[Rfam]
RNA: Small nucleolar RNA SNORA22
RNA sequence: CUGCACAGAGAACACCCAAGCUUACUUUGUAGUUCCCUUGGCUCAUAGUCUGUGCUAGAGUAAUAGCUGCUCUUUUCCUCUGCAUUGGAAGGAAUAUCUAUCCUUUUAUAUGUAUUCAGAAGGGCUGCACAUUU
Number, nucleotide and partner (000 for none) at each position: 001c000002u000003g055004c054005a053006c052007a051008g050009a000010g049011a000012a000013c000014a000015c000016c041017c040018a039019a038020g037021c000022u000023u000024a033025c032026u031027u000028u000029g000030u000031a026032g025033u024034u000035c000036c000037c020038u019039u018040g017041g016042c000043u000044c000045a000046u000047a000048g000049u010050c008051u007052g006053u005054g004055c003056u000057a073058g072059a071060g070061u069062a068063a000064u000065a000066g000067c000068u062069g061070c060071u059072c058073u057074u000075u000076u000077c000078c000079u120080c119081u118082g117083c112084a111085u110086u000087g107088g106089a105090a104091g103092g102093a101094a000095u000096a000097u000098c000099u000100a000101u093102c092103c091104u090105u089106u088107u087108a000109u000110a085111u084112g083113u000114a000115u000116u000117c082118a081119g080120a079121a000122g000123g000124g000125c000126u000127g000128c000129a000130c000131a000132u000133u000134u000